[Rfam]
RNA sequence: AUGGCAAUCUUGCCAAAACCGUUAAGGUGCGGGGGACUUGAAUUCCCGCGCGGACGAACCGGCAGGUCCGAUCCGCGCUCGGGGUGAAUCGCGCCGUCCAAGGCGCGUAGGGGUGAACUCCCAGCCCGAACCCGACAACUAACCUCGCCGGCAUCAGAGGAGGAACUC
Numbered sequence: 001a002u003g004g005c006a007a008u009c010u011u012g013c014c015a016a017a018a019c020c021g022u023u024a025a026g027g028u029g030c031g032g033g034g035g036a037c038u039u040g041a042a043u044u045c046c047c048g049c050g051c052g053g054a055c056g057a058a059c060c061g062g063c064a065g066g067u068c069c070g071a072u073c074c075g076c077g078c079u080c081g082g083g084g085u086g087a088a089u090c091g092c093g094c095c096g097u098c099c100a101a102g103g104c105g106c107g108u109a110g111g112g113g114u115g116a117a118c119u120c121c122c123a124g125c126c127c128g129a130a131c132c133c134g135a136c137a138a139c140u141a142a143c144c145u146c147g148c149c150g151g152c153a154u155c156a157g158a159g160g161a162g163g164a165a166c167u168c
Base pairs, nucleotide, nucleotide: 011153012152013151014150018028019027020026029148030147031146032145033144034143039081040080082133083132084131090107091106092105093104110127111126112125
The family of this 168-nucleotide sequence from Cohnella xylanilytica is "c-di-AMP riboswitch aptamer (ydaO/yuaA leader)". The base pairs follow the family's consensus structure. Taxonomically the source falls in Cohnella (Bacteria, Bacillota, Caryophanales, Paenibacillaceae). This family represents a conserved RNA structure found upstream of the ydaO and yuaA genes in Bacillus subtilis and related genes in other bacteria.